[Rfam]
RNA sequence: CGUAUUAUUCUGUCUGCCAGCCGUUGCACCUGUUGACUCUUGCGACGGCAGCCUGUGUUACACACAGCGCGCAAUCCUGAACCGGUAAGU
Dot-bracket structure: ...............((..(((((((((............))))))))).))((((((...)))))).......................